Description:
The family of this 69-nucleotide RNA sequence from Alligator mississippiensis is "Mammalian CPEB3 ribozyme". Its family is annotated with RNA nuclease activity in the Gene Ontology. It scores 36 bits against the family's covariance model. About the family: The mammalian CPEB3 ribozyme is a self cleaving RNA located in the second intron of the CPEB3 gene which belongs to a family of genes regulating messenger RNA polyadenylation. This ribozyme is highly conserved and found only in mammals. The CPEB3 ribozyme is structurally and biochemically related to the human hepatitis delta virus (HDV) ribozyme and the HDV ribozyme is proposed to have arisen from the human transcriptome. Lineage of the source: Eukaryota > Tetrapoda > Amniota > Sauropsida > Alligator. The base pairs follow the family's consensus structure, which is taken from published work.
RNA sequence: AGUGCAAGGCCGUAGCAGAAGGCUCACGGUGUAGGCCUGUCAAAUUCCAAUGAAUUUGCAAAUUCUGCU
Dot-bracket structure: .......[[[[..(((((((.((.......)).]]]]...(((((((....)))))))....)))))))